[Rfam]
RNA: mir-196 microRNA precursor family
Organism: Synaphobranchus kaupii
RNA sequence: GGAGUGGUUUAGGUAGUUUCAUGUUGUUGGGCUCCGUUUUCUACCUCUACAACAAGAAACUGUCUUCAUUGCCAC
Numbered sequence: 001g002g003a004g005u006g007g008u009u010u011a012g013g014u015a016g017u018u019u020c021a022u023g024u025u026g027u028u029g030g031g032c033u034c035c036g037u038u039u040u041c042u043a044c045c046u047c048u049a050c051a052a053c054a055a056g057a058a059a060c061u062g063u064c065u066u067c068a069u070u071g072c073c074a075c
Stems, first nucleotide, its partner, number of pairs: 004072005011065009022054006029047003